[Rfam]
RNA sequence: GAUCAUUGAGGGUAAAACAGGCAUUUACCGCACCCAACUUUAGGGUAUAAAGAGAUGUGGGAUACGCCGCCCCACCAAUAAUC
Numbered sequence: 001g002a003u004c005a006u007u008g009a010g011g012g013u014a015a016a017a018c019a020g021g022c023a024u025u026u027a028c029c030g031c032a033c034c035c036a037a038c039u040u041u042a043g044g045g046u047a048u049a050a051a052g053a054g055a056u057g058u059g060g061g062a063u064a065c066g067c068c069g070c071c072c073c074a075c076c077a078a079u080a081a082u083c
Base pairs, nucleotide, nucleotide: 001083002082003081005079006078007077008076011029012028013027014026015025020068021067022066031052032046033045034044035043057075058074059073060072061071
RNA: skipping-rope RNA